Description
Shown here is a 74-nucleotide RNA from Molossus molossus, a member of the family "mir-483 microRNA precursor family". The family has 8 seed sequences and 122 matches in Rfam 15.1. Taxonomically the source falls in Molossus (Eukaryota, Chordata, Gnathostomata, Theria).
[Rfam]
RNA sequence: GAGGGGGGGACGGGAGGAGAGGAGGGCGUGGUUUUCUGCAGGUCCUCACUCCUCUUCUCCCGUCUUCUUCUUCC
Numbered sequence: 001g002a003g004g005g006g007g008g009g010a011c012g013g014g015a016g017g018a019g020a021g022g023a024g025g026g027c028g029u030g031g032u033u034u035u036c037u038g039c040a041g042g043u044c045c046u047c048a049c050u051c052c053u054c055u056u057c058u059c060c061c062g063u064c065u066u067c068u069u070c071u072u073c074c
Stems, first nucleotide, its partner, number of pairs: 003070015021054001023053004028049003